RNA sequence: CUCGCCAAGGGGCGCUGCGACCGUGGAUAGGCACGGCCAGGCUUGGCGGAACUUUUCUGUAACGGCGCCCGGUCAAG
Number, nucleotide and partner (000 for none) at each position: 001c000002u049003c048004g047005c046006c045007a044008a043009g000010g000011g000012g000013c000014g000015c000016u000017g000018c000019g000020a000021c036022c035023g034024u033025g032026g000027a000028u000029a000030g000031g000032c025033a024034c023035g022036g021037c000038c000039a000040g000041g000042c000043u008044u007045g006046g005047c004048g003049g002050a000051a000052c000053u000054u000055u000056u000057c000058u000059g000060u000061a000062a000063c000064g000065g000066c000067g000068c000069c000070c000071g000072g000073u000074c000075a000076a000077g000